[Rfam]
A member of the RNA family "Potassium channel RNA editing signal" from Macrostomum lignano, 113 nucleotides long. The base pairs follow the family's consensus structure, which is taken from published work. The source organism's lineage runs through Eukaryota, Eumetazoa, Bilateria, Protostomia and Macrostomum. From the family's description: This family represents a group of sequences related to the human potassium channel Kv1.1 hairpin element which directs the efficient modification of an adenosine to inosine by an adenosine deaminase acting on RNA (ADAR). On this family, see Bhalla et al., Nat Struct Mol Biol 2004: "Control of human potassium channel inactivation by editing of a small mRNA hairpin".
RNA sequence: GCAGAUACGGCGACAUGGUGCCAACCACCAUCAUUGGCAAAAUUGUGGGUGGUGUCUGCUCCCUGUCCGGGGUUCUCGUCAUCGCCCUCCCAGUGCCGGUCAUCGUGAGCAGC
Numbered sequence: 001g002c003a004g005a006u007a008c009g010g011c012g013a014c015a016u017g018g019u020g021c022c023a024a025c026c027a028c029c030a031u032c033a034u035u036g037g038c039a040a041a042a043u044u045g046u047g048g049g050u051g052g053u054g055u056c057u058g059c060u061c062c063c064u065g066u067c068c069g070g071g072g073u074u075c076u077c078g079u080c081a082u083c084g085c086c087c088u089c090c091c092a093g094u095g096c097c098g099g100u101c102a103u104c105g106u107g108a109g110c111a112g113c
Stems, first nucleotide, its partner, number of pairs: 001113002004110001006107005012101003017096001020094002036076002039073001048062002